[Rfam]
RNA: Small nucleolar RNA snoR27
RNA sequence: AUUGGAUCGAUGAUUGAUUGGUUUACUAAACUGCGUUAUCUAUCUGCAAAUCUCGUUCAAGGAGUUUGAAGAAACAAUAAAAACUGAGAUCCAUC
Number, nucleotide and partner (000 for none) at each position: 001a000002u000003u093004g092005g091006a090007u089008c000009g000010a000011u000012g000013a000014u000015u000016g000017a000018u000019u000020g000021g000022u000023u000024u000025a000026c000027u000028a000029a000030a000031c000032u000033g000034c000035g000036u000037u000038a000039u000040c000041u000042a000043u000044c000045u000046g000047c000048a000049a000050a000051u000052c000053u000054c000055g000056u000057u000058c000059a000060a000061g000062g000063a000064g000065u000066u000067u000068g000069a000070a000071g000072a000073a000074a000075c000076a000077a000078u000079a000080a000081a000082a000083a000084c000085u000086g000087a000088g000089a007090u006091c005092c004093a003094u000095c000